[Rfam]
This 83-nucleotide sequence from Nematostella vectensis belongs to the Rfam family "Small nucleolar RNA snR60/Z15/Z230/Z193/J17". The match comes from Rfam's covariance-model search (54 bits). The family is grouped with related families in Rfam's "SNORD77 clan". For this family Rfam cites "A computational screen for methylation guide snoRNAs in yeast" (Lowe and Eddy, Science, 1999). Taxonomically the source falls in Nematostella (Eukaryota, Metazoa, Eumetazoa, Actiniaria).
RNA sequence: UUGCAACAGUGAUGAUUGAAUAAAAGCAUAGUUCAUCUGAAUAAUAUUGUAGAAAAAUAUUUCGCCCCUAUCUGAAGUUGCAA
Numbered sequence: 001u002u003g004c005a006a007c008a009g010u011g012a013u014g015a016u017u018g019a020a021u022a023a024a025a026g027c028a029u030a031g032u033u034c035a036u037c038u039g040a041a042u043a044a045u046a047u048u049g050u051a052g053a054a055a056a057a058u059a060u061u062u063c064g065c066c067c068c069u070a071u072c073u074g075a076a077g078u079u080g081c082a083a
Stems, first nucleotide, its partner, number of pairs: 004080004